[Rfam]
Cyanobacterial functional RNA 11: a 149-nucleotide sequence from Prochlorococcus marinus. Rfam's curators put it in the seed alignment. The family's consensus secondary structure was predicted with mfold. The literature on the family includes a 2008 paper in PLoS Genet by Steglich et al., "The challenge of regulation in a minimal photoautotroph: non-coding RNAs in Prochlorococcus". NCBI's taxonomy places the organism under Bacteria, Cyanobacteriota, Cyanophyceae, Synechococcales, Prochlorococcus marinus subsp. pastoris.
RNA sequence: AAUCAAAUGGAGGGAUCAGAAAUGAUUGAUAGUCCACCAGAGAAUUUAAUGAGAUUGGUUUAAACAGCCAAAUCCUAUUAAAUAAAAAUAAGCUAAGUAUUCCUAAAGAGGUUGUUUUCAUUUAAAGGCUGAGUUCAACCUCUUUUUUG
Numbered sequence: 001a002a003u004c005a006a007a008u009g010g011a012g013g014g015a016u017c018a019g020a021a022a023u024g025a026u027u028g029a030u031a032g033u034c035c036a037c038c039a040g041a042g043a044a045u046u047u048a049a050u051g052a053g054a055u056u057g058g059u060u061u062a063a064a065c066a067g068c069c070a071a072a073u074c075c076u077a078u079u080a081a082a083u084a085a086a087a088a089u090a091a092g093c094u095a096a097g098u099a100u101u102c103c104u105a106a107a108g109a110g111g112u113u114g115u116u117u118u119c120a121u122u123u124a125a126a127g128g129c130u131g132a133g134u135u136c137a138a139c140c141u142c143u144u145u146u147u148u149g
Stems, first nucleotide, its partner, number of pairs: 009103004014027005030095004044083008053074001056071001057069004105145010117133004